[Rfam]
The record is a 135-nucleotide sequence from Stutzerimonas nosocomialis, which matches "Pseudomonas sRNA P18" in Rfam. A search with the family's covariance model found it, with a score of 62 bits.
RNA sequence: GGCGGGGUGCUGGUCAGCCCGUUUCUGCCGGCCGCGGUGCUGGCGCUGGCGCUGACCUUCGGCCUGCGUGCGCUGCUGCGCGCGGCGGGCCUGGGCCGUUGGGUCUGGCAUGAAGCGCUGUUCGACUGCGCGCUG
Numbered sequence: 001g002g003c004g005g006g007g008u009g010c011u012g013g014u015c016a017g018c019c020c021g022u023u024u025c026u027g028c029c030g031g032c033c034g035c036g037g038u039g040c041u042g043g044c045g046c047u048g049g050c051g052c053u054g055a056c057c058u059u060c061g062g063c064c065u066g067c068g069u070g071c072g073c074u075g076c077u078g079c080g081c082g083c084g085g086c087g088g089g090c091c092u093g094g095g096c097c098g099u100u101g102g103g104u105c106u107g108g109c110a111u112g113a114a115g116c117g118c119u120g121u122u123c124g125a126c127u128g129c130g131c132g133c134u135g
Stems, first nucleotide, its partner, number of pairs: 002067005008061002012052001014049005019043003023039001068133002075097001077095001079093002098131002102127004108121003